[Rfam]
RNA sequence: UGAGUCGGCCAGGCGGUCGCGUCGGUUCCGCUCACGCGGAGCUGCCGAGGAACGUCCGGGCUCCACAGGGCGGGGUGGUGGGUAACACCCACCCGGGGUGACCCGCGGGACAGUGCCACAGAAAACAGACCGCCGGUGUCCUCGGACGCCGGUAAGGGUGAAACGGUGCGGUAAGAGCGCACCAGCGCCCGGGGUGACCCGGGCGGCUAGGUAAACCCCACCCGGAGCAAGGUCAAAAGGUUCCGGAGCUCCAGGGUUCCGGGGCUGCGCAGGCGUUCGAGGGCUGCCCGCCCGAGCCUGCGGGUGGACCGCUGGAGGCUGUCGGCAACGGCAGCCCGAGAUAGAUGACCGCCAGCCGGGGAUCGCUUCGCG
Number, nucleotide and partner (000 for none) at each position: 001u000002g000003a000004g000005u000006c000007g000008g000009c000010c000011a000012g353013g352014c351015g350016g349017u348018c347019g000020c047021g046022u000023c044024g043025g042026u041027u040028c039029c038030g037031c000032u000033c000034a000035c000036g000037c030038g029039g028040a027041g026042c025043u024044g023045c000046c021047g020048a000049g000050g000051a000052a000053c000054g000055u000056c000057c000058g000059g000060g000061c227062u226063c225064c224065a000066c000067a000068g289069g288070g287071c286072g000073g223074g222075g221076u220077g219078g092079u091080g090081g089082g088083u000084a000085a000086c000087a000088c082089c081090c080091a079092c078093c107094c105095g104096g103097g102098g000099u000100g000101a000102c097103c096104c095105g094106c000107g093108g218109g217110a000111c000112a000113g216114u215115g212116c211117c210118a000119c000120a000121g000122a000123a000124a000125a000126c000127a000128g000129a000130c157131c156132g153133c152134c151135g150136g149137u148138g147139u146140c145141c000142u000143c000144g000145g140146a139147c138148g137149c136150c135151g134152g133153u132154a000155a000156g131157g130158g000159u000160g000161a000162a000163a000164c000165g183166g182167u181168g180169c179170g178171g000172u000173a000174a000175g000176a000177g000178c170179g169180c168181a167182c166183c165184a000185g207186c205187g204188c203189c202190c201191g200192g199193g198194g000195u000196g000197a000198c193199c192200c191201g190202g189203g188204c187205g186206g000207c185208u000209a000210g117211g116212u115213a000214a000215a114216c113217c109218c108219c077220a076221c075222c074223c073224g064225g063226a062227g061228c000229a000230a000231g310232g309233u308234c307235a000236a000237a000238a000239g000240g000241u000242u000243c000244c000245g000246g000247a000248g000249c000250u000251c000252c000253a000254g000255g000256g000257u000258u000259c000260c000261g000262g000263g000264g000265c000266u000267g000268c000269g301270c300271a299272g298273g297274c296275g000276u000277u000278c000279g000280a000281g293282g292283g291284c290285u000286g071287c070288c069289c068290g284291c283292c282293c281294g000295a000296g274297c273298c272299u271300g270301c269302g000303g000304g000305u000306g000307g234308a233309c232310c231311g000312c000313u000314g000315g000316a000317g336318g335319c334320u333321g332322u331323c330324g329325g000326c000327a000328a000329c324330g323331g322332c321333a320334g319335c318336c317337c000338g000339a000340g000341a000342u000343a000344g000345a000346u000347g018348a017349c016350c015351g014352c013353c012354a000355g000356c000357c000358g000359g000360g000361g000362a000363u000364c000365g000366c000367u000368u000369c000370g000371c000372g000